Record summary:
The record is an 85-nucleotide sequence from Bacillus sp. FJAT-49711, which matches "Group II catalytic intron D1-D4-1" in Rfam. The base pairs follow the family's consensus structure. Rfam links the family to the GO term Group II intron splicing.
RNA sequence: UAACCUAUCCAGUGAUGGAUAGCUGAACAAUCAGAAGUCAGCAGAGGCCAUAGUACCAUUCGAACUCGAGAAGAAUGGGAAGGGC
Numbered sequence: 001u002a003a004c005c006u007a008u009c010c011a012g013u014g015a016u017g018g019a020u021a022g023c024u025g026a027a028c029a030a031u032c033a034g035a036a037g038u039c040a041g042c043a044g045a046g047g048c049c050a051u052a053g054u055a056c057c058a059u060u061c062g063a064a065c066u067c068g069a070g071a072a073g074a075a076u077g078g079g080a081a082g083g084g085c
Stems, first nucleotide, its partner, number of pairs: 001025002005022007038045002047085003056078006
Dot-bracket structure: ((..(((((((....))))))).))............((....)).(((......((((((...........))))))....)))